[Rfam]
Background: Rfam assigns this 79-nucleotide RNA from Gluconacetobacter takamatsuzukensis to the family "Fluoride riboswitch aptamer (crcB RNA motif)". Gene Ontology terms of the family: positive regulation of gene expression and response to fluoride. It scores 46 bits against the family's covariance model. Pairs were carried over by alignment from the consensus structure, which is taken from published work.

RNA sequence: CUGAGGGCCGGCAAUGGAUUCUGCCUGACCCCGCACGGGUCGAACCGCCCGCCACCGGGCUGAUGAUUCCUACCCGGCC
Numbered sequence: 001c002u003g004a005g006g007g008c009c010g011g012c013a014a015u016g017g018a019u020u021c022u023g024c025c026u027g028a029c030c031c032c033g034c035a036c037g038g039g040u041c042g043a044a045c046c047g048c049c050c051g052c053c054a055c056c057g058g059g060c061u062g063a064u065g066a067u068u069c070c071u072a073c074c075c076g077g078c079c
Stems, first nucleotide, its partner, number of pairs: 010025004016070003020066002047060004